[Rfam]
RNA sequence: CUCUGGUACCAAAACUAGUUUUCGCAGUGGUCUGACAGAAAGAAACAAUUUCUGAGAUCAUUGUGAAAGCUGAUUUUGAUCG
Numbered sequence: 001c002u003c004u005g006g007u008a009c010c011a012a013a014a015c016u017a018g019u020u021u022u023c024g025c026a027g028u029g030g031u032c033u034g035a036c037a038g039a040a041a042g043a044a045a046c047a048a049u050u051u052c053u054g055a056g057a058u059c060a061u062u063g064u065g066a067a068a069g070c071u072g073a074u075u076u077u078g079a080u081c082g
Base pairs, nucleotide, nucleotide: 010078011077012076013075014074016072017071018070019069020068021067022066023065024064025063028060029059030058031057032056033055
RNA: bantam microRNA precursor family
Organism: Ramazzottius varieornatus